[Rfam]
RNA sequence: UUUUUAGUAUAACUGUGUGCCACGCAAUGUUUGGUACAUACUUACACUAAAA
Numbered sequence: 001u002u003u004u005u006a007g008u009a010u011a012a013c014u015g016u017g018u019g020c021c022a023c024g025c026a027a028u029g030u031u032u033g034g035u036a037c038a039u040a041c042u043u044a045c046a047c048u049a050a051a052a
Stems, first nucleotide, its partner, number of pairs: 006048003010044003014040003018036004022031001
Dot-bracket structure: .....(((.(((.(((.(((((........).)))).))).))).)))....